Record summary: This 274-nucleotide sequence from Oryza rufipogon belongs to the Rfam family "MIR159 microRNA precursor family". Its family is annotated with miRNA-mediated post-transcriptional gene silencing and RISC complex in the Gene Ontology. NCBI's taxonomy places the organism under Eukaryota, Spermatophyta, commelinids, Poales, Oryza.

RNA sequence: GUUGUGGACGUUGAGCUCCUUUCGGUCCAAAAAGGGGUGUUGCUGUGGGUCGAUUGAGCUGCUGGGUCAUGGAUCCCGUUAGCCUACUCCAUGUUCAUCAUUCAGCUCGAGAUCUGAAAGAAACUACUCCAAUUUAUACUAAUAGUAUGUGUGUAGAUAGGAAAAUGAUGGAGUACUCGUUGUUGGGAUAGGCUUAUGGCUUGCAUGCCCCAGGAGCUGCAUCAACCCUACAUGGACCCUCUUUGGAUUGAAGGGAGCUCUGCAUCUUUUGUCA
Numbered sequence: 001g002u003u004g005u006g007g008a009c010g011u012u013g014a015g016c017u018c019c020u021u022u023c024g025g026u027c028c029a030a031a032a033a034g035g036g037g038u039g040u041u042g043c044u045g046u047g048g049g050u051c052g053a054u055u056g057a058g059c060u061g062c063u064g065g066g067u068c069a070u071g072g073a074u075c076c077c078g079u080u081a082g083c084c085u086a087c088u089c090c091a092u093g094u095u096c097a098u099c100a101u102u103c104a105g106c107u108c109g110a111g112a113u114c115u116g117a118a119a120g121a122a123a124c125u126a127c128u129c130c131a132a133u134u135u136a137u138a139c140u141a142a143u144a145g146u147a148u149g150u151g152u153g154u155a156g157a158u159a160g161g162a163a164a165a166u167g168a169u170g171g172a173g174u175a176c177u178c179g180u181u182g183u184u185g186g187g188a189u190a191g192g193c194u195u196a197u198g199g200c201u202u203g204c205a206u207g208c209c210c211c212a213g214g215a216g217c218u219g220c221a222u223c224a225a226c227c228c229u230a231c232a233u234g235g236a237c238c239c240u241c242u243u244u245g246g247a248u249u250g251a252a253g254g255g256a257g258c259u260c261u262g263c264a265u266c267u268u269u270u271g272u273c274a
Stems, first nucleotide, its partner, number of pairs: 013260008023250007036237001059216002062213003068207004076199004
Dot-bracket structure: ............((((((((..(((((((......(......................((.(((...((((....((((....................................................................................................................))))....))))...))).))....................)......)))))))..))))))))..............